[Rfam]
RNA sequence: CGUAACCCAUCGACGAACUCAUUCGUACGGCAGGAGCGGGGGACCCAGGUAAGCCGCCGACCCGAACGGCACACGCCGAGCGGAACGGCCAGGGGUGAAGUCGUGCCUUCCCCAGGGCACGGCCGGGCACCUCCCCGCCCGAACCCGACAGCUCACCUCGUAGGCGCCGGAGAGGAACA
Number, nucleotide and partner (000 for none) at each position: 001c163002g000003u000004a000005a000006c034007c033008c000009a000010u000011c000012g000013a000014c000015g000016a000017a000018c000019u000020c000021a000022u000023u000024c000025g000026u000027a000028c000029g000030g000031c000032a000033g007034g006035a000036g161037c160038g159039g158040g157041g156042g000043a000044c000045c000046c092047a000048g000049g000050u000051a000052a000053g000054c000055c000056g000057c000058c000059g000060a000061c000062c000063c000064g000065a000066a000067c000068g000069g000070c000071a000072c000073a000074c000075g000076c000077c000078g000079a000080g000081c000082g000083g000084a000085a000086c000087g000088g000089c000090c000091a000092g046093g146094g145095g144096u000097g000098a000099a000100g000101u122102c121103g120104u119105g118106c117107c116108u000109u000110c000111c000112c000113c000114a000115g000116g107117g106118c105119a104120c103121g102122g101123c000124c000125g140126g139127g138128c137129a000130c000131c000132u000133c000134c000135c000136c000137g128138c127139c126140c125141g000142a000143a000144c095145c094146c093147g000148a000149c000150a000151g000152c000153u000154c000155a000156c041157c040158u039159c038160g037161u036162a000163g001164g000165c000166g000167c000168c000169g000170g000171a000172g000173a000174g000175g000176a000177a000178c000179a000
RNA: c-di-AMP riboswitch aptamer (ydaO/yuaA leader)